[Rfam]
RNA sequence: UCCUUAUCUAGAGAAGCCGAGGGACUGGCCUUAUGACGCUUCAGCAACCAGCAUAUUUCAUUUGUAUGUAUGGUGCUAAAUCCUGCAGACAUUAUAGUCUGAAAGAUGAGGG
Numbered sequence: 001u002c003c004u005u006a007u008c009u010a011g012a013g014a015a016g017c018c019g020a021g022g023g024a025c026u027g028g029c030c031u032u033a034u035g036a037c038g039c040u041u042c043a044g045c046a047a048c049c050a051g052c053a054u055a056u057u058u059c060a061u062u063u064g065u066a067u068g069u070a071u072g073g074u075g076c077u078a079a080a081u082c083c084u085g086c087a088g089a090c091a092u093u094a095u096a097g098u099c100u101g102a103a104a105g106a107u108g109a110g111g112g
Stems, first nucleotide, its partner, number of pairs: 001112008013042005021031003025085001027083002043077004048073002051069006081104001086101005